[Rfam]
RNA sequence: GGGUGCUUGAGGCUAUCUGCCUCAGGCAUGAACACCAAAAGGCAGAUAGAGAAAAGCCCCAGUUAACAUUACGCGUCUCUGCAAGACGCUUAACAUUAAUCUGAGGCUCAAUCUAUGCUGAACACAUGUAGGUUAGCCUCUUACGUGCCGAAAGGCAAGGAGAAGCAGGCUAUGAAG
Numbered sequence: 001g002g003g004u005g006c007u008u009g010a011g012g013c014u015a016u017c018u019g020c021c022u023c024a025g026g027c028a029u030g031a032a033c034a035c036c037a038a039a040a041g042g043c044a045g046a047u048a049g050a051g052a053a054a055a056g057c058c059c060c061a062g063u064u065a066a067c068a069u070u071a072c073g074c075g076u077c078u079c080u081g082c083a084a085g086a087c088g089c090u091u092a093a094c095a096u097u098a099a100u101c102u103g104a105g106g107c108u109c110a111a112u113c114u115a116u117g118c119u120g121a122a123c124a125c126a127u128g129u130a131g132g133u134u135a136g137c138c139u140c141u142u143a144c145g146u147g148c149c150g151a152a153a154g155g156c157a158a159g160g161a162g163a164a165g166c167a168g169g170c171u172a173u174g175a176a177g
Base pairs, nucleotide, nucleotide: 001060002059003058005057006056007055008054013049014048015047016046017045018044019043020042021041022040026036061102062101064099065097066096069093070092103140104139105138106137107136110134111133112132113131114130115127116126117125144169146167148165
RNA: sok antitoxin (CssrC)
Organism: Escherichia coli